L31-Actinobacteria ribosomal protein leader: a 42-nucleotide RNA from Motilibacter rhizosphaerae. Pairs were carried over by alignment from the consensus structure, which is taken from published work. Clan: Ribosomal Protein L31 Leader clan. The match comes from Rfam's covariance-model search (40 bits). It is annotated as a cis-regulatory leader.
RNA sequence: GCGGUUCCGGUCCACGGCGAUCUCCCUGCCGACCCGGCGACC
Numbered sequence: 001g002c003g004g005u006u007c008c009g010g011u012c013c014a015c016g017g018c019g020a021u022c023u024c025c026c027u028g029c030c031g032a033c034c035c036g037g038c039g040a041c042c
Base pairs, nucleotide, nucleotide: 003042004041005040007037008036009035010034015031016030017029018028019027